[Rfam]
The record is a 405-nucleotide part of an RNA from Australozyma monospora, which matches "Eukaryotic large subunit ribosomal RNA" in Rfam.
A reference for the family is Yusupov et al. (2001), "Crystal structure of the ribosome at 5.5 A resolution", Science.
The source organism's lineage runs through Eukaryota, Fungi, Ascomycota, saccharomyceta and Australozyma.
RNA sequence: UAGAAUAAUGUAGAUAAGGGAAGUCGGCAAAAUGGAUCCGUAACUUCGGGAUAAGGAUUGGCUCUAGGGGUGGGUUUUCUUUGCUCCCCCUUCGGGGAGUAACCAAAACGUAUCCACCGCCCUAGAACUGGUACGGACAAGGGGAAUCUGACUGUCUAAUUAAAACAUAGCAUUGCGACUCUCAUAACUGACAUUGACGCAAUGUGAUUUCUGCCCAGUGCUCUGAAUGUCAAAGUGAAGAAAUUCAACCAAGCGCGGGUAAACGGCGGGAGUAACUAUGACUCUCUUAAGGUAGCCAAAUGCCUCGUCAUCUAAUUAGUGACGCGCAUGAAUGGAUUAACGAGAUUCCCACUGUCCCUAUCUACUAUCUAGCGAAACCACAGCCAAGGGAACGGGCUUGGAAUA
Dot-bracket structure: ((((.....(((((((.(((..............(((((....(....).....)))))((.(((((((((((.(((...........................)))......)))))..)))))).))(...).......(((((((((..(((.........)))..((((((((....(((....)))......))))))))...(((.(((..((((((.(..(((.....((((....)))).....))))))))..)))))((((((.......))))))(...)...............(((((.......)))))..........)))....)).)))))))....))).)))))))..))))............(((((........)))))....